[Rfam]
Shown here is a 78-nucleotide sequence from Xanthomonas oryzae, a member of the family "Xanthomonas sRNA sX9". The family's RNA type in Rfam is small RNA. NCBI's taxonomy places the organism under Bacteria, Pseudomonadati, Gammaproteobacteria, Xanthomonas, Xanthomonas oryzae pv. oryzae. The base pairs follow the family's consensus structure, which was predicted with RNAalifold. For this family Rfam cites "Genome-wide transcriptome analysis of the plant pathogen Xanthomonas identifies sRNAs with putative virulence functions" (Schmidtke et al., Nucleic Acids Res, 2011).
RNA sequence: AUGUACCACUCGCACACCGCGCGGUUGCUGCGCGCCGUCCAUGUUCACCUGACGACGACCCGCGACGUUUUGGCAGCC
Numbered sequence: 001a002u003g004u005a006c007c008a009c010u011c012g013c014a015c016a017c018c019g020c021g022c023g024g025u026u027g028c029u030g031c032g033c034g035c036c037g038u039c040c041a042u043g044u045u046c047a048c049c050u051g052a053c054g055a056c057g058a059c060c061c062g063c064g065a066c067g068u069u070u071u072g073g074c075a076g077c078c
Stems, first nucleotide, its partner, number of pairs: 002016003006012001022037004049076003053072003